[Rfam]
RNA sequence: UAAUUUGUUUAAGUCAAAUUCUCAUAUAGUUGUAGCAAAUUCAUAUUUGUUUGUUUAAAAUUACUUGUUAUCAAAGUCUGACUAUAUUAUUAAUACCGUGUAAACAAUAAUUUUUUAAAAUUUUAAUUGGAAU
Numbered sequence: 001u002a003a004u005u006u007g008u009u010u011a012a013g014u015c016a017a018a019u020u021c022u023c024a025u026a027u028a029g030u031u032g033u034a035g036c037a038a039a040u041u042c043a044u045a046u047u048u049g050u051u052u053g054u055u056u057a058a059a060a061u062u063a064c065u066u067g068u069u070a071u072c073a074a075a076g077u078c079u080g081a082c083u084a085u086a087u088u089a090u091u092a093a094u095a096c097c098g099u100g101u102a103a104a105c106a107a108u109a110a111u112u113u114u115u116u117a118a119a120a121u122u123u124u125a126a127u128u129g130g131a132a133u
Base pairs, nucleotide, nucleotide: 004131005130006129007128008126009125012122014120018116024111025110027107029105030104031103
RNA: MIR480 microRNA precursor family
Organism: Populus tomentosa